Annotation
IS605-orfB-I RNA: a 209-nucleotide RNA. It is annotated as a small RNA.

[Rfam]
Nucleotides: 209
Stems, first nucleotide, its partner, number of pairs: 001051006008044001010040006017034005022028001067124008081113007092104002095101001130147005136206006142168001149162005173199007180191003
Number, partner (000 for none) and nucleotide at each position: 001051g002050u003049c004048c005047u006046a007000u008044a009000u010040a011039g012038a013037u014036g015035u016000a017034u018033c019032a020031a021030c022028g023000c024000a025000a026000g027000a028022c029000a030021g031020u032019u033018g034017a035015g036014c037013a038012u039011c040010u041000c042000c043000c044008u045000u046006u047005a048004g049003g050002a051001u052000g053000u054000u055000g056000u057000u058000u059000a060000u061000c062000c063000a064000g065000a066000a067124g068123c069122u070121u071120c072119a073118g074117c075000g076000a077000c078000a079000a080000u081113c082112u083111u084110u085109a086108u087107u088000g089000u090000g091000u092104a093103g094000c095101u096000g097000c098000a099000u100000a101095a102000g103093u104092u105000g106000a107087a108086a109085u110084a111083a112082a113081g114000u115000g116000a117074g118073u119072u120071g121070a122069a123068g124067u125000g126000g127000a128000a129000c130147a131146g132145g133144u134143u135000a136206a137205u138204c139203g140202u141201a142168a143134g144133a145132c146131c147130u148000u149162g150161a151160g152159u153158u154000g155000a156000a157000a158153a159152a160151c161150u162149c163000u164000a165000a166000a167000a168142u169000u170000a171000a172000c173199c174198u175197a176196g177195a178194a179193a180191u181190a182189u183000a184000a185000u186000u187000u188000c189182g190181u191180a192000u193179u194178u195177u196176c197175u198174a199173g200000u201141u202140g203139c204138g205137a206136u207000c208000c209000c